[Rfam]
RNA sequence: CGUCUGUUUCAGGGCGGGGUGCAAGUCCCCACCGGCGGUGAACGGGCCCGAAAGGUCCCCAAAGUCCGCGAACUCCCGCAAGGGAGCCGAUUUGGUGCAAUUCCAAAACCGACGGUUAAAGUCCGGAUGAAAGAAACGGCGG
Number, nucleotide and partner (000 for none) at each position: 001c000002g000003u000004c139005u138006g137007u136008u135009u134010c133011a000012g000013g000014g000015c000016g000017g029018g028019g027020u000021g000022c000023a000024a000025g000026u000027c019028c018029c017030c000031a122032c121033c111034g110035g069036c068037g067038g066039u000040g000041a000042a000043c000044g000045g000046g000047c000048c000049c000050g000051a000052a000053a000054g000055g000056u000057c000058c000059c000060c000061a000062a000063a000064g109065u108066c038067c037068g036069c035070g000071a000072a000073c086074u085075c000076c000077c000078g000079c000080a000081a000082g000083g000084g000085a074086g073087c000088c000089g000090a000091u107092u106093u105094g104095g103096u000097g000098c000099a000100a000101u000102u000103c095104c094105a093106a092107a091108a065109c064110c034111g033112a000113c125114g124115g123116u000117u000118a000119a000120a000121g032122u031123c115124c114125g113126g000127a000128u000129g000130a000131a000132a000133g010134a009135a008136a007137c006138g005139g004140c000141g000142g000
Shown here is a 142-nucleotide RNA sequence from Zongyangia hominis, a member of the family "FMN riboswitch aptamer (RFN element)". Lineage of the source: Bacteria > Bacillati > Bacillota > Clostridia > Zongyangia.